RNA sequence: AGCGCUGCCGGCGCUAUAUAAAGGGAAGCGAUUGUAAUAGUUUCGCCUACAGUUUUGAAUAGCUGACGCUAUAAAAUAUUCAUGGUUUACGACUUCGUACCUAUUUCAAGAAGCGUAUUCCAUAAAAGGUAGAAGAUGUAGCGACGCCUAUUCUGUUUAGCGAUUGAAAUAACAGAUAAAUUAGCUACAAAGGGUAAGGUUUAAUCGCUAGAUUUUGAUUCUAGUAACGGCGCAAGUCGUGGGAUUAUAUAGAUAUAUUAGCAAUAAUAUAACAAGUAGGGCAAUUUGGAUUAAGACGCUUGAUAAUAUAUAUAGCUGUAGAAGGCUAACUAUAAAUA
Numbered sequence: 001a002g003c004g005c006u007g008c009c010g011g012c013g014c015u016a017u018a019u020a021a022a023g024g025g026a027a028g029c030g031a032u033u034g035u036a037a038u039a040g041u042u043u044c045g046c047c048u049a050c051a052g053u054u055u056u057g058a059a060u061a062g063c064u065g066a067c068g069c070u071a072u073a074a075a076a077u078a079u080u081c082a083u084g085g086u087u088u089a090c091g092a093c094u095u096c097g098u099a100c101c102u103a104u105u106u107c108a109a110g111a112a113g114c115g116u117a118u119u120c121c122a123u124a125a126a127a128g129g130u131a132g133a134a135g136a137u138g139u140a141g142c143g144a145c146g147c148c149u150a151u152u153c154u155g156u157u158u159a160g161c162g163a164u165u166g167a168a169a170u171a172a173c174a175g176a177u178a179a180a181u182u183a184g185c186u187a188c189a190a191a192g193g194g195u196a197a198g199g200u201u202u203a204a205u206c207g208c209u210a211g212a213u214u215u216u217g218a219u220u221c222u223a224g225u226a227a228c229g230g231c232g233c234a235a236g237u238c239g240u241g242g243g244a245u246u247a248u249a250u251a252g253a254u255a256u257a258u259u260a261g262c263a264a265u266a267a268u269a270u271a272a273c274a275a276g277u278a279g280g281g282c283a284a285u286u287u288g289g290a291u292u293a294a295g296a297c298g299c300u301u302g303a304u305a306a307u308a309u310a311u312a313u314a315g316c317u318g319u320a321g322a323a324g325g326c327u328a329a330c331u332a333u334a335a336a337u338a
Base pairs, nucleotide, nucleotide: 001015002014003013004012005011028046029045030044031043050065051064052063053062083122084121085120088117089116090115091114094111095110137189138188139187140186141185142184150177151176153175154174155173156172208224209223210222211221212220227240228239229238230237231236254271255270256269257268258267259266260265273302274301275300276299277298313328314327315326316325317324